Shown here is a 111-nucleotide sequence from Cellulomonas aerilata, a member of the family "SAM (S-adenosyl methionine) riboswitch aptamer". A search with the family's covariance model found it, with a score of 85 bits. Clan: SAM clan.
Nucleotides: 111
Stems, first nucleotide, its partner, number of pairs: 001078004009038001011037006021030002039065003044061003049055001081100008
Number, partner (000 for none) and nucleotide at each position: 001078g002077g003076u004075c005000a006000c007000g008000a009038g010000c011037u012036c013035c014034a015033g016032c017000g018000c019000g020000c021030a022029g023000c024000c025000c026000c027000g028000g029022c030021u031000u032016g033015c034014u035013g036012g037011a038009c039065g040064g041063c042000a043000a044061c045060c046059c047000c048000u049055c050000c051000u052000c053000g054000c055049g056000u057000g058000g059046g060045g061044g062000u063041g064040c065039u066000c067000c068000g069000g070000g071000u072000g073000a074000g075004g076003a077002c078001c079000u080000g081100a082099c083098c084097c085096g086095c087094g088093c089000a090000c091000c092000c093088g094087c095086g096085c097084g098083g099082g100081u101000a102000a103000c104000c105000a106000c107000g108000c109000a110000c111000c